[Rfam]
RNA sequence: GAGUCUCAGGACGAAGUGGUUCGGUCAUGACCCAUAUUUAUUAUGGGCACCAGGCCGAGGAAAGUCCCCGGGCUGAAAUCCGUAGAAAUGCGGUCUCGGUAACGAGUUCUACUUCAAGCGUGGCGAUUACGGACUAUAAAUUAGUGCGUGGGCUGAGACGUGUGUGGAGCCUUUGGUUGCUGCCUGAAGUAUAUUAGCCGAUUUAUCACAGUAAUCCACUUGGUCCCUAAGUUGGACUAACUGAACGGGGAUUACGAUCCUGUGACU
Numbered sequence: 001g002a003g004u005c006u007c008a009g010g011a012c013g014a015a016g017u018g019g020u021u022c023g024g025u026c027a028u029g030a031c032c033c034a035u036a037u038u039u040a041u042u043a044u045g046g047g048c049a050c051c052a053g054g055c056c057g058a059g060g061a062a063a064g065u066c067c068c069c070g071g072g073c074u075g076a077a078a079u080c081c082g083u084a085g086a087a088a089u090g091c092g093g094u095c096u097c098g099g100u101a102a103c104g105a106g107u108u109c110u111a112c113u114u115c116a117a118g119c120g121u122g123g124c125g126a127u128u129a130c131g132g133a134c135u136a137u138a139a140a141u142u143a144g145u146g147c148g149u150g151g152g153c154u155g156a157g158a159c160g161u162g163u164g165u166g167g168a169g170c171c172u173u174u175g176g177u178u179g180c181u182g183c184c185u186g187a188a189g190u191a192u193a194u195u196a197g198c199c200g201a202u203u204u205a206u207c208a209c210a211g212u213a214a215u216c217c218a219c220u221u222g223g224u225c226c227c228u229a230a231g232u233u234g235g236a237c238u239a240a241c242u243g244a245a246c247g248g249g250g251a252u253u254a255c256g257a258u259c260c261u262g263u264g265a266c267u
Stems, first nucleotide, its partner, number of pairs: 002267004007262005014221006021058006032046005062253002066250004081092004093108001095106004110191003114187003118183002123180004131172002134169001158165002223237004